[Rfam]
RNA: mir-160 microRNA precursor family
RNA sequence: CUAUGCCUGGCUCCCUGUAUGCCACCUGCACCGUCCAUGAUCCUUCCAUUGACCAUGCACCUGGCGUGCGAGGAGCCAUGCAUAC
Dot-bracket structure: .(((((.(((((((.(((((((((..(((...........................)))..))))))))).))))))).))))).